[Rfam]
RNA sequence: GUGAAGUUGUUCACAACAAACAUAUACCCCUUUGUUUGAUAUCGUGAAAAAUUUCUCCCAUCCCCUUUGUUCGUAAUUAUAGAAAAAUGCCCCGCCGGAACGGGGCAUUUUUCA
Numbered sequence: 001g002u003g004a005a006g007u008u009g010u011u012c013a014c015a016a017c018a019a020a021c022a023u024a025u026a027c028c029c030c031u032u033u034g035u036u037u038g039a040u041a042u043c044g045u046g047a048a049a050a051a052u053u054u055c056u057c058c059c060a061u062c063c064c065c066u067u068u069g070u071u072c073g074u075a076a077u078u079a080u081a082g083a084a085a086a087a088u089g090c091c092c093c094g095c096c097g098g099a100a101c102g103g104g105g106c107a108u109u110u111u112u113c114a
Stems, first nucleotide, its partner, number of pairs: 003055006011047004017038006084111011

Shown here is a 114-nucleotide sequence from Neobacillus piezotolerans, a member of the family "RNA Staph. aureus E (RoxS)". Gene Ontology term of the family: regulation of translational initiation. It was shown to be regulated by the presence of nitric oxide (NO). In Bacillus subtilis it controls expression of genes with functions related to oxidative stress and oxidation-reduction reactions and it was renamed RoxS (for related to oxidative stress).